RNA sequence: ACCUUUCCGGGCAUUCUCCUCCCAUUUCUGCCCGGAAAGUGUUCCCCUCUGGAGGUUUGGCCCUGACGGGCACUUCCAAUUUCUGGCCGGAUCGAAAGAUCCGGCCAUUUUU
Numbered sequence: 001a002c003c004u005u006u007c008c009g010g011g012c013a014u015u016c017u018c019c020u021c022c023c024a025u026u027u028c029u030g031c032c033c034g035g036a037a038a039g040u041g042u043u044c045c046c047c048u049c050u051g052g053a054g055g056u057u058u059g060g061c062c063c064u065g066a067c068g069g070g071c072a073c074u075u076c077c078a079a080u081u082u083c084u085g086g087c088c089g090g091a092u093c094g095a096a097a098g099a100u101c102c103g104g105c106c107a108u109u110u111u112u
Stems, first nucleotide, its partner, number of pairs: 001040001003039003007035003011031003050078007084107010